[Rfam]
RNA sequence: UAGAACAAUGUAGAUAAGGGAAGUCGGCAAAAUAGAUCCGUAACUUCGGGAAAAGGAUUGGCUCUAAGGCUUGGGUGCAUCGGGGCUUGACUGGAAGCCGUGGGAUCCGGAUGGGACUGUUUUGGUUCGCCAGAAUGGACCUACCUGGGACCCGCUGGUGGAUGGUCUUGUCUGCCUUCGGGCAUCCGGUGUACGCUUAACAAGCAACUUAGAACUGGUACGGACAAGGGGAAUCUGACUGUCUAAUUAAAACAUAGCAUUGCGAUGGCCAGAAAGUGGUGUUGACGCAAUGUGAUUUCUGCCCAGUGCUCUGAAUGUCAAAGUGAAGAAAUUCAACCAAGCGCGGGUAAACGGCGGGAGUAACUAUGACUCUCUUAAGGUAGCCAAAUGCCUCGUCAUCUAAUUAGUGACGCGCAUGAAUGGAUUAACGAGAUUCCCACUGUCCCUAUCUACUAUCUAGCGAAACCACAGCCAAGGGAACGGGCUUGGCAGA
Numbered sequence: 001u002a003g004a005a006c007a008a009u010g011u012a013g014a015u016a017a018g019g020g021a022a023g024u025c026g027g028c029a030a031a032a033u034a035g036a037u038c039c040g041u042a043a044c045u046u047c048g049g050g051a052a053a054a055g056g057a058u059u060g061g062c063u064c065u066a067a068g069g070c071u072u073g074g075g076u077g078c079a080u081c082g083g084g085g086c087u088u089g090a091c092u093g094g095a096a097g098c099c100g101u102g103g104g105a106u107c108c109g110g111a112u113g114g115g116a117c118u119g120u121u122u123u124g125g126u127u128c129g130c131c132a133g134a135a136u137g138g139a140c141c142u143a144c145c146u147g148g149g150a151c152c153c154g155c156u157g158g159u160g161g162a163u164g165g166u167c168u169u170g171u172c173u174g175c176c177u178u179c180g181g182g183c184a185u186c187c188g189g190u191g192u193a194c195g196c197u198u199a200a201c202a203a204g205c206a207a208c209u210u211a212g213a214a215c216u217g218g219u220a221c222g223g224a225c226a227a228g229g230g231g232a233a234u235c236u237g238a239c240u241g242u243c244u245a246a247u248u249a250a251a252a253c254a255u256a257g258c259a260u261u262g263c264g265a266u267g268g269c270c271a272g273a274a275a276g277u278g279g280u281g282u283u284g285a286c287g288c289a290a291u292g293u294g295a296u297u298u299c300u301g302c303c304c305a306g307u308g309c310u311c312u313g314a315a316u317g318u319c320a321a322a323g324u325g326a327a328g329a330a331a332u333u334c335a336a337c338c339a340a341g342c343g344c345g346g347g348u349a350a351a352c353g354g355c356g357g358g359a360g361u362a363a364c365u366a367u368g369a370c371u372c373u374c375u376u377a378a379g380g381u382a383g384c385c386a387a388a389u390g391c392c393u394c395g396u397c398a399u400c401u402a403a404u405u406a407g408u409g410a411c412g413c414g415c416a417u418g419a420a421u422g423g424a425u426u427a428a429c430g431a432g433a434u435u436c437c438c439a440c441u442g443u444c445c446c447u448a449u450c451u452a453c454u455a456u457c458u459a460g461c462g463a464a465a466c467c468a469c470a471g472c473c474a475a476g477g478g479a480a481c482g483g484g485c486u487u488g489g490c491a492g493a
Stems, first nucleotide, its partner, number of pairs: 001459004010453007018445003035059005044049001060216002063213006069205005075194009084172003089167003097159004101154004106149005112143004117138009217221001229438007236430002240254003257293008268280004297424003301355003306352002308348004313344001316343003324335004356374006375379001395411005472489005
RNA: Eukaryotic large subunit ribosomal RNA, nucleotides 1897 to 2389
Organism: Auriculariales sp. MPI-PUGE-AT-0066